tRNA: a 72-nucleotide sequence from Hydrocarboniphaga effusa.
The base pairs follow the family's consensus structure, which is taken from published work.
Lineage of the source: Bacteria > Pseudomonadota > Nevskiales > Nevskiaceae > Hydrocarboniphaga effusa.
Transfer RNA (tRNA) molecules are approximately 80 nucleotides in length.
RNA sequence: GGGUUGCUAGCUCAAUGGUAGAGCAGCUGACUCUUAAUCAGUAGGUUCGGGGUUCGAGUCCCUGGCAGCCCA
Numbered sequence: 001g002g003g004u005u006g007c008u009a010g011c012u013c014a015a016u017g018g019u020a021g022a023g024c025a026g027c028u029g030a031c032u033c034u035u036a037a038u039c040a041g042u043a044g045g046u047u048c049g050g051g052g053u054u055c056g057a058g059u060c061c062c063u064g065g066c067a068g069c070c071c072a
Stems, first nucleotide, its partner, number of pairs: 001071007010024004026042005048064005

The match comes from Rfam's covariance-model search (70 bits).